Rfam assigns this 75-nucleotide RNA sequence from Quiscalus mexicanus to the family "Small nucleolar RNA SNORD66". It is annotated as a C/D-box small nucleolar RNA. snoRNA HBII-142 is part of the C/D family of snoRNAs. It is the human orthologue of the mouse MBII-142 snoRNA and is predicted to guide 2'O-ribose methylation of small 18S rRNA at residue C1272.

[Rfam]
RNA sequence: GUCAAAUGAGGAGAGCAUUUAGUGGCAUGUGACAGUGCCACUGAGCUGUGGUGAGGGACGAGAUGCCUUGAUGAC
Numbered sequence: 001g002u003c004a005a006a007u008g009a010g011g012a013g014a015g016c017a018u019u020u021a022g023u024g025g026c027a028u029g030u031g032a033c034a035g036u037g038c039c040a041c042u043g044a045g046c047u048g049u050g051g052u053g054a055g056g057g058a059c060g061a062g063a064u065g066c067c068u069u070g071a072u073g074a075c
Stems, first nucleotide, its partner, number of pairs: 001075004
The family's consensus secondary structure was predicted with RNAalifold. Its family is annotated with RNA processing and nucleolus in the Gene Ontology. Taxonomically the source falls in Quiscalus (Eukaryota, Sarcopterygii, Telluraves, Passeriformes). The match comes from Rfam's covariance-model search (35 bits).